The family of this 140-nucleotide RNA sequence from Methylobrevis pamukkalensis is "Alphaproteobacterial sRNA BjrC1505". The base pairs follow the family's consensus structure. Rfam classes the family as a small RNA. The match comes from Rfam's covariance-model search (72 bits). NCBI's taxonomy places the organism under Bacteria, Pseudomonadati, Alphaproteobacteria, Hyphomicrobiales, Methylobrevis.
RNA sequence: UCCAAGUAUUUACCAAUUGUUAACAUUUAUAAUCUAUUACUGGUCUUGUCCAGCCUUCUGGAUCUGCGAGUGGCUCCCGUCACUCCUUUUUGAUGCCUCCCUGUCUACUUAGAGCCGCGCUUCGACGCGGCUCUUUUUUC
Numbered sequence: 001u002c003c004a005a006g007u008a009u010u011u012a013c014c015a016a017u018u019g020u021u022a023a024c025a026u027u028u029a030u031a032a033u034c035u036a037u038u039a040c041u042g043g044u045c046u047u048g049u050c051c052a053g054c055c056u057u058c059u060g061g062a063u064c065u066g067c068g069a070g071u072g073g074c075u076c077c078c079g080u081c082a083c084u085c086c087u088u089u090u091u092g093a094u095g096c097c098u099c100c101c102u103g104u105c106u107a108c109u110u111a112g113a114g115c116c117g118c119g120c121u122u123c124g125a126c127g128c129g130g131c132u133c134u135u136u137u138u139u140c
Base pairs, nucleotide, nucleotide: 002043003042004041006014016038021036022035026031048063049062050061051060068085069084070083071082072081092105093104094103095102111134112133113132114131115130116129117128118127119126